[Rfam]
RNA sequence: ACCUUGAAAGCGCCGAAUUCGUGUGAAGCGGAGGACCCAGUCAGAUCGGGGUGAAUUGUUUUAACAAGGGGCACGACCACGGCCCUAACCCGUCAGCUAACUUCGUAGGCGUUGGGGGCUCAAGGU
Numbered sequence: 001a002c003c004u005u006g007a008a009a010g011c012g013c014c015g016a017a018u019u020c021g022u023g024u025g026a027a028g029c030g031g032a033g034g035a036c037c038c039a040g041u042c043a044g045a046u047c048g049g050g051g052u053g054a055a056u057u058g059u060u061u062u063a064a065c066a067a068g069g070g071g072c073a074c075g076a077c078c079a080c081g082g083c084c085c086u087a088a089c090c091c092g093u094c095a096g097c098u099a100a101c102u103u104c105g106u107a108g109g110c111g112u113u114g115g116g117g118g119c120u121c122a123a124g125g126u
Stems, first nucleotide, its partner, number of pairs: 011111004018027003028106006038048001049091003057066003069085004
Rfam assigns this 126-nucleotide RNA sequence from Sulfobacillus harzensis to the family "c-di-AMP riboswitch aptamer (ydaO/yuaA leader)". The base pairs follow the family's consensus structure.